[Rfam]
RNA sequence: CCUCCUGAGGAGCGCUGCGACGGGCGCGCGAAUCGCAAGACACGAUCAAUCCUUGUGAUCAUGUUUUGCCAAUUCCGCCAGGUGUGCCGAUUCUUUCCGAAUCACGGCACCCCGCCCGCCAGGCUCAGGACUCGUUCAAGACCGGCUGCCCGCUGGUCAGGCAACCGCGCUCACCGAAC
Numbered sequence: 001c002c003u004c005c006u007g008a009g010g011a012g013c014g015c016u017g018c019g020a021c022g023g024g025c026g027c028g029c030g031a032a033u034c035g036c037a038a039g040a041c042a043c044g045a046u047c048a049a050u051c052c053u054u055g056u057g058a059u060c061a062u063g064u065u066u067u068g069c070c071a072a073u074u075c076c077g078c079c080a081g082g083u084g085u086g087c088c089g090a091u092u093c094u095u096u097c098c099g100a101a102u103c104a105c106g107g108c109a110c111c112c113c114g115c116c117c118g119c120c121a122g123g124c125u126c127a128g129g130a131c132u133c134g135u136u137c138a139a140g141a142c143c144g145g146c147u148g149c150c151c152g153c154u155g156g157u158c159a160g161g162c163a164a165c166c167g168c169g170c171u172c173a174c175c176g177a178a179c
Stems, first nucleotide, its partner, number of pairs: 003130006021118006

The record is a 179-nucleotide RNA sequence from Pigmentiphaga aceris, which matches "SAH (S-adenosyl-L-homocysteine) riboswitch aptamer" in Rfam.